A member of the RNA family "Alphaproteobacteria transfer-messenger RNA" from Pelagibacterales bacterium SAG-MED05, 299 nucleotides long. Pairs were carried over by alignment from the consensus structure, which is taken from published work. The family is grouped with related families in Rfam's "tRNA clan". The family's RNA type in Rfam is non-coding RNA gene. On this family, see Laslett et al., Nucleic Acids Res 2002: "BRUCE: a program for the detection of transfer-messenger RNA genes in nucleotide sequences". From the family's description: Bacterial tmRNA, also known as 10Sa RNA or SsrA, is named for its dual tRNA and mRNA-like properties. Taxonomically the source falls in Candidatus Pelagibacterales (Bacteria, Pseudomonadati, Pseudomonadota, Alphaproteobacteria).

RNA sequence: CUUAUUGAAUCUAUCUGUAAGAGUUUUAUAUUAAUAGUGUUGGUUUUCCAACUAUGACGAUAAACGAAUUUCGUAAUAAACAUUACGGACGUGGGGGCAGUACCCACCACCUCCACCAUUUACAACUUACGGGGGUGAAUUAGGAUCGACGGAUGUCUAAAAGCUAUUCUUUCGUACGAGAUGGUUCCGACGUAACGGACCAAUUUACAAAUGCUAACGAAAGUUACGCACUUGCUGCUUAAUUAACUUAGUUAAUUAAGUUACGGGGUCCGGGGCACCUGGCAACAGAACGCCCCUUA
Numbered sequence: 001c002u003u004a005u006u007g008a009a010u011c012u013a014u015c016u017g018u019a020a021g022a023g024u025u026u027u028a029u030a031u032u033a034a035u036a037g038u039g040u041u042g043g044u045u046u047u048c049c050a051a052c053u054a055u056g057a058c059g060a061u062a063a064a065c066g067a068a069u070u071u072c073g074u075a076a077u078a079a080a081c082a083u084u085a086c087g088g089a090c091g092u093g094g095g096g097g098c099a100g101u102a103c104c105c106a107c108c109a110c111c112u113c114c115a116c117c118a119u120u121u122a123c124a125a126c127u128u129a130c131g132g133g134g135g136u137g138a139a140u141u142a143g144g145a146u147c148g149a150c151g152g153a154u155g156u157c158u159a160a161a162a163g164c165u166a167u168u169c170u171u172u173c174g175u176a177c178g179a180g181a182u183g184g185u186u187c188c189g190a191c192g193u194a195a196c197g198g199a200c201c202a203a204u205u206u207a208c209a210a211a212u213g214c215u216a217a218c219g220a221a222a223g224u225u226a227c228g229c230a231c232u233u234g235c236u237g238c239u240u241a242a243u244u245a246a247c248u249u250a251g252u253u254a255a256u257u258a259a260g261u262u263a264c265g266g267g268g269u270c271c272g273g274g275g276c277a278c279c280u281g282g283c284a285a286c287a288g289a290a291c292g293c294c295c296c297u298u299a
Base pairs, nucleotide, nucleotide: 039052040051041050042049043048057175058174059173060172066169067168068167069166072163081155082154083153086151087150091107092106093105094104095103108137109136110135111134112133113132114131177192178191182202183201184200186199187198188197266280267279268278269277272297273296274295275294